[Rfam]
RNA sequence: AUGAACAAAGGCAAACCCACCGAAAGAUGGGGACGCAAAGCCACGGGUCUAAGCCAUGUGUCACACCUCAUGGGACGAUAGCCGGGUUGCUCUAU
Numbered sequence: 001a002u003g004a005a006c007a008a009a010g011g012c013a014a015a016c017c018c019a020c021c022g023a024a025a026g027a028u029g030g031g032g033a034c035g036c037a038a039a040g041c042c043a044c045g046g047g048u049c050u051a052a053g054c055c056a057u058g059u060g061u062c063a064c065a066c067c068u069c070a071u072g073g074g075a076c077g078a079u080a081g082c083c084g085g086g087u088u089g090c091u092c093u094a095u
Base pairs, nucleotide, nucleotide: 001095003092004091011036012035016031017030018029019028021026034081039088040087041086042085044084045083046082047079048078049077
Rfam assigns this 95-nucleotide RNA sequence from Paenibacillus sedimenti to the family "c-di-GMP-I-GGC riboswitch aptamer". The literature on the family includes a 2009 paper in Nat Struct Mol Biol by Kulshina et al., "Recognition of the bacterial second messenger cyclic diguanylate by its cognate riboswitch". Taxonomically the source falls in Paenibacillus (Bacteria, Bacillati, Bacillota, Caryophanales).